Shown here is a 69-nucleotide RNA from Saccharopolyspora gloriosae, a member of the family "ASpks TB sRNA". The family's consensus secondary structure is taken from published work. By type it is an antisense RNA. Taxonomically the source falls in Saccharopolyspora (Bacteria, Bacillati, Actinomycetota, Actinomycetes).
[Rfam]
RNA sequence: CUUCAGCGAGCCGAGCCGCAGCGGCUCUUCGCGGUCCUGGCCGUAGGCGUCCAGCAGCGCCUGCGCCUC
Numbered sequence: 001c002u003u004c005a006g007c008g009a010g011c012c013g014a015g016c017c018g019c020a021g022c023g024g025c026u027c028u029u030c031g032c033g034g035u036c037c038u039g040g041c042c043g044u045a046g047g048c049g050u051c052c053a054g055c056a057g058c059g060c061c062u063g064c065g066c067c068u069c
Base pairs, nucleotide, nucleotide: 014026015025016024017023028065030063032059033058037054038053039052042049043048